[Rfam]
RNA sequence: UGGUAGAUGCACCCUGAUUUCAAUUUCCUGGACUCCAUUUUGGUGUUCGGGAAUUUUUUU
Numbered sequence: 001u002g003g004u005a006g007a008u009g010c011a012c013c014c015u016g017a018u019u020u021c022a023a024u025u026u027c028c029u030g031g032a033c034u035c036c037a038u039u040u041u042g043g044u045g046u047u048c049g050g051g052a053a054u055u056u057u058u059u060u
Stems, first nucleotide, its partner, number of pairs: 002013003026052008035043002
Rfam assigns this 60-nucleotide RNA sequence from Cyanobacteria bacterium FACHB-502 to the family "Nitrogen stress-induced RNA 1". The organism belongs to Cyanobacteriota, within Bacteria. Rfam classes the family as a small RNA.